Shown here is a 56-nucleotide sequence from Streptomyces sp. So13.3, a member of the family "L17-Actino-Proteobacteria ribosomal protein leader". Pairs were carried over by alignment from the consensus structure, which is taken from published work. The match comes from Rfam's covariance-model search (62 bits). It is annotated as a cis-regulatory leader.
[Rfam]
RNA sequence: CUGGCAGGCACACGCCCGUCGGACACUGACACCGGUACCUGAUCCGGCCGGUGCAG
Number, nucleotide and partner (000 for none) at each position: 001c022002u021003g020004g019005c018006a000007g016008g015009c014010a000011c000012a000013c000014g009015c008016c007017c000018g005019u004020c003021g002022g001023a000024c000025a000026c056027u055028g054029a000030c053031a052032c051033c050034g049035g048036u047037a000038c000039c000040u000041g000042a000043u000044c000045c000046g000047g036048c035049c034050g033051g032052u031053g030054c028055a027056g026
Background
The organism belongs to Streptomyces, within Bacteria. For this family Rfam cites "Discovery of 20 novel ribosomal leader candidates in bacteria and archaea" (Eckert and Weinberg, BMC Microbiol, 2020).